mir-2807 microRNA precursor family: an 84-nucleotide sequence from Bombyx mori. NCBI's taxonomy places the organism under Eukaryota, Eumetazoa, Bilateria, Arthropoda, Bombyx. The base pairs follow the family's consensus structure, which was predicted with RNAalifold. On this family, see Liu et al., BMC Genomics 2010: "MicroRNAs of Bombyx mori identified by Solexa sequencing".
RNA sequence: UUAGCUCAUAUUUGUAUGGAGUGGGAUUGUUUGCGUACGUUUGCCACUAGGGGCGCUGUUCCAACUGCAUACAAAAUUAGGUUA
Numbered sequence: 001u002u003a004g005c006u007c008a009u010a011u012u013u014g015u016a017u018g019g020a021g022u023g024g025g026a027u028u029g030u031u032u033g034c035g036u037a038c039g040u041u042u043g044c045c046a047c048u049a050g051g052g053g054c055g056c057u058g059u060u061c062c063a064a065c066u067g068c069a070u071a072c073a074a075a076a077u078u079a080g081g082u083u084a
Base pairs, nucleotide, nucleotide: 008078011075012074013073014072015071016070018068020066021065022064024062025061026060028058029057034052036050039047040046